[Rfam]
RNA sequence: GCCAAUGAUGAGAGAAUCCUAAUGUAUGAAAUACAGUAGAUCCAAGACCUUGUUUGACAGGGAGAACCACUUGUUGAAGCUGUAUUUCACAUGAUAUAUUUGUACUCAGCUGAGGC
Numbered sequence: 001g002c003c004a005a006u007g008a009u010g011a012g013a014g015a016a017u018c019c020u021a022a023u024g025u026a027u028g029a030a031a032u033a034c035a036g037u038a039g040a041u042c043c044a045a046g047a048c049c050u051u052g053u054u055u056g057a058c059a060g061g062g063a064g065a066a067c068c069a070c071u072u073g074u075u076g077a078a079g080c081u082g083u084a085u086u087u088c089a090c091a092u093g094a095u096a097u098a099u100u101u102g103u104a105c106u107c108a109g110c111u112g113a114g115g116c
Stems, first nucleotide, its partner, number of pairs: 001116003048062005
The family of this 116-nucleotide RNA sequence from Artemisia annua is "Small nucleolar RNA Z278". For this family Rfam cites "The high diversity of snoRNAs in plants: identification and comparative study of 120 snoRNA genes from Oryza sativa" (Chen et al., Nucleic Acids Res, 2003). The source organism's lineage runs through Eukaryota, Viridiplantae, Pentapetalae, campanulids and Artemisia. Rfam's curators write: snoZ278 is a C/D box small nucleolar RNA. Its methylation guide targets have not been reported. It scores 47 bits against the family's covariance model. It is annotated as a C/D-box small nucleolar RNA.